Rfam assigns this 65-nucleotide RNA sequence to the family "DUF3800-IX RNA".
[Rfam]
RNA sequence: GCCCGCUUCUCCGAACUGUCACCGUAUGGUGUGCGUGCCCGAAAGGGAUAGGAGAGCGGGUUUUC
Numbered sequence: 001g002c003c004c005g006c007u008u009c010u011c012c013g014a015a016c017u018g019u020c021a022c023c024g025u026a027u028g029g030u031g032u033g034c035g036u037g038c039c040c041g042a043a044a045g046g047g048a049u050a051g052g053a054g055a056g057c058g059g060g061u062u063u064u065c
Stems, first nucleotide, its partner, number of pairs: 001061008010053003017035003020031004038047003
Annotation:
Rfam's curators write: Actinobacteria, Firmicutes (1 example), Nitrospirae, Proteobacteria, Verrucomicrobia (1 example). By type it is a small RNA. It is one of the family's seed sequences.